[Rfam]
This 136-nucleotide sequence from [Clostridium] cellulosi belongs to the Rfam family "FMN riboswitch aptamer (RFN element)". Pairs were carried over by alignment from the consensus structure, which is taken from published work.

RNA sequence: CUAAGUCUUCGGGGCGGGGUGAAAUUCCCCACCGGCGGUAAUGCAGCGUUUCGCUGACAAGCCCGCGAGCUGUUUUUCAGCAGAUUUCGGUGAGAUUCCGAAGCCGACGGUAAAGUCCGGAUGGAAGAAGGCGGCA
Numbered sequence: 001c002u003a004a005g006u007c008u009u010c011g012g013g014g015c016g017g018g019g020u021g022a023a024a025u026u027c028c029c030c031a032c033c034g035g036c037g038g039u040a041a042u043g044c045a046g047c048g049u050u051u052c053g054c055u056g057a058c059a060a061g062c063c064c065g066c067g068a069g070c071u072g073u074u075u076u077u078c079a080g081c082a083g084a085u086u087u088c089g090g091u092g093a094g095a096u097u098c099c100g101a102a103g104c105c106g107a108c109g110g111u112a113a114a115g116u117c118c119g120g121a122u123g124g125a126a127g128a129a130g131g132c133g134g135c136a
Stems, first nucleotide, its partner, number of pairs: 005132006017029003031116002033106002035066004061104002069081003086102005108119003
Lineage of the source: Bacteria > Bacillota > Eubacteriales > Oscillospiraceae > Ruminiclostridium.